[Rfam]
RNA sequence: AUCAAAGAAACCAUAUUCUUGAACAUUUUAUAUAGUGACUUUUGUCCUUAUAUAUAAUGUUCAAGAAUAUGGUUUCUUUGAU
Numbered sequence: 001a002u003c004a005a006a007g008a009a010a011c012c013a014u015a016u017u018c019u020u021g022a023a024c025a026u027u028u029u030a031u032a033u034a035g036u037g038a039c040u041u042u043u044g045u046c047c048u049u050a051u052a053u054a055u056a057a058u059g060u061u062c063a064a065g066a067a068u069a070u071g072g073u074u075u076c077u078u079u080g081a082u
Stems, first nucleotide, its partner, number of pairs: 002081005008075015024059004031054004037046002
The record is an 82-nucleotide sequence from Ceratopteris richardii, which matches "mir-2763 microRNA precursor family" in Rfam. The source organism's lineage runs through Eukaryota, Streptophyta, Euphyllophyta, Polypodiopsida and Ceratopteris. It scores 54 bits against the family's covariance model. The family's consensus secondary structure was predicted with RNAalifold.